ctRNA: an 85-nucleotide sequence from Lactococcus lactis.
The source organism's lineage runs through Bacteria, Bacillota, Lactobacillales, Streptococcaceae and Lactococcus.
From the family's description: Rolling circle replication plasmids contain a number of mechanisms to maintain a low copy number. One of these methods is to transcribe a small RNA called ctRNA (for counter-transcribed RNA) than is transcribed on the opposite strand to RepB the replication initiation protein. ctRNA binds to the mRNA of repB and causes translational inhibition.
Its family is annotated with mRNA binding and plasmid copy number maintenance in the Gene Ontology.
The sequence is in the family's curated seed alignment.
For this family Rfam cites "Involvement of antisense RNA in replication control of the lactococcal plasmid pND324" (Duan et al., FEMS Microbiol Lett, 1998).
[Rfam]
RNA sequence: UGUAAAUACGCUCCUUUGCGUGUUAUAAAGUGGACAUAGAGAAAGAUUCUUUGCGGGAUAGUUCUCUAUGUCUUUUAUUGUACCA
Numbered sequence: 001u002g003u004a005a006a007u008a009c010g011c012u013c014c015u016u017u018g019c020g021u022g023u024u025a026u027a028a029a030g031u032g033g034a035c036a037u038a039g040a041g042a043a044a045g046a047u048u049c050u051u052u053g054c055g056g057g058a059u060a061g062u063u064c065u066c067u068a069u070g071u072c073u074u075u076u077a078u079u080g081u082a083c084c085a
Stems, first nucleotide, its partner, number of pairs: 005024007032073012
Dot-bracket structure: ....(((((((......))))))).......((((((((((((..................))))))))))))............